[Rfam]
Shown here is a 313-nucleotide sequence from Archaeoglobus veneficus, a member of the family "Archaeal signal recognition particle RNA". By type it is a non-coding RNA gene. The organism belongs to Archaeoglobus veneficus, within Archaea. Its family is annotated with SRP-dependent cotranslational protein targeting to membrane, signal sequence recognition and signal recognition particle, plasma membrane targeting in the Gene Ontology.
RNA sequence: UGGUGGGCUAGGCCGGGGGGUUCGGCGUCCCCUGUAACCCGAAACCGUCGAUAUGCGGGGGCCGAAGCCGAGGGAAGGUUCGCUCAGCGGGGAUGCAAGUUUUGUCCGGCUCCGCAGAGUCCCCGUCCUGGAGGGUCGUCGGUUACGGUCGGGCUGCCCGGAGGGGCUGUCCGCCGUAUUUGCCGGGGGAACCGGCCCAGGCCCGGAAGGGAGCAGGCUAACCCCGGACGUUCGGCGCUUCCAGGGGUGCGGGGAGGAGGAGUCGGGCUUAGCUGCUCCCCGUGAUGCGGAUCGACCCGAGGCGUGCCCACCU
Dot-bracket structure: .(((((((..(((((((((((.....)))))))....((((.(..........).))))))))...(((..(((..(((((..(..(((((((.(((..((..((((((((((.(....(((((((((((((((((((.(((.(((((.(((((.((((....)))).)))))))))).)..((((((.....((((....(((....)))....))))..)))))).))..)))).))))))))...))))))).).))))))))))..)).)))))))))).)...)))))..)))..)))..))))))).